[Rfam]
RNA sequence: AACUUUGUUUGACAAUGAGAGAGAGCACACCCGUCAGCAUUCGUGCAAAUGGCAAGGCUGUCUACUAGCUUGCUCUCUACCAUUGUCAUACGAUU
Numbered sequence: 001a002a003c004u005u006u007g008u009u010u011g012a013c014a015a016u017g018a019g020a021g022a023g024a025g026c027a028c029a030c031c032c033g034u035c036a037g038c039a040u041u042c043g044u045g046c047a048a049a050u051g052g053c054a055a056g057g058c059u060g061u062c063u064a065c066u067a068g069c070u071u072g073c074u075c076u077c078u079a080c081c082a083u084u085g086u087c088a089u090a091c092g093a094u095u
Base pairs, nucleotide, nucleotide: 010088011087012086013085014084016082017081020078021077023075025073026072027071030068033065034064
MIR535 microRNA precursor family: a 95-nucleotide RNA sequence from Citrus unshiu. Gene Ontology terms of the family: miRNA-mediated post-transcriptional gene silencing and RISC complex.